[Rfam]
Nucleotides: 115
Stems, first nucleotide, its partner, number of pairs: 001100004024091004037087010049075005056068003
Number, partner (000 for none) and nucleotide at each position: 001100g002099g003098u004097a005000u006000u007000c008000c009000u010000u011000a012000u013000c014000u015000g016000u017000g018000u019000c020000u021000a022000a023000u024091a025090c026089g027088u028000u029000g030000a031000u032000u033000a034000u035000c036000u037087g038086g039085a040084a041083c042082c043081u044080g045079u046078c047000c048000c049075a050074u051073u052072g053071u054000g055000c056068u057067u058066u059000c060000c061000u062000u063000g064000g065000a066058a067057a068056a069000a070000c071053a072052c073051a074050a075049u076000a077000a078046g079045a080044c081043a082042g083041g084040u085039u086038c087037u088027g089026c090025g091024u092000u093000u094000a095000g096000u097004u098003g099002c100001c101000g102000c103000g104000c105000u106000c107000u108000a109000a110000a111000a112000a113000u114000u115000g
About this RNA:
A member of the RNA family "tp2" from Buttiauxella agrestis, 115 nucleotides long. A search with the family's covariance model found it, with a score of 102 bits. On this family, see Hershberg et al., Nucleic Acids Res 2003: "A survey of small RNA-encoding genes in Escherichia coli".